[Rfam]
RNA sequence: ACCCCGCCCUCCCCGCACAGGAGGACGGACGGGACGCGGUGCUCUCUGCCCUGACGGCACCGGGUCCCCACUUCAGUCGGCACCACCGGCCGCGCGGACCGCACACCGCUCGGGUACCGGCGCCGACGGCAGCUCCGGGCUGCGGUGCCGGAAGGGCUGAGGGUCCCUUCCCGGCGC
Numbered sequence: 001a002c003c004c005c006g007c008c009c010u011c012c013c014c015g016c017a018c019a020g021g022a023g024g025a026c027g028g029a030c031g032g033g034a035c036g037c038g039g040u041g042c043u044c045u046c047u048g049c050c051c052u053g054a055c056g057g058c059a060c061c062g063g064g065u066c067c068c069c070a071c072u073u074c075a076g077u078c079g080g081c082a083c084c085a086c087c088g089g090c091c092g093c094g095c096g097g098a099c100c101g102c103a104c105a106c107c108g109c110u111c112g113g114g115u116a117c118c119g120g121c122g123c124c125g126a127c128g129g130c131a132g133c134u135c136c137g138g139g140c141u142g143c144g145g146u147g148c149c150g151g152a153a154g155g156g157c158u159g160a161g162g163g164u165c166c167c168u169u170c171c172c173g174g175c176g177c
Stems, first nucleotide, its partner, number of pairs: 004028003008024005031068005037062003041058002043054002073126002076121004082115003132146003136142002150171007
Notes
The family of this 177-nucleotide RNA sequence from Streptantibioticus cattleyicolor is "Streptomyces sRNA scr5239". Pairs were carried over by alignment from the consensus structure, which is taken from published work. For this family Rfam cites "Identification of metE as a second target of the sRNA scr5239 in Streptomyces coelicolor" (Vockenhuber et al., PLoS One, 2015). Its family is annotated with negative regulation of translation and mRNA binding in the Gene Ontology. Rfam classes the family as a small RNA.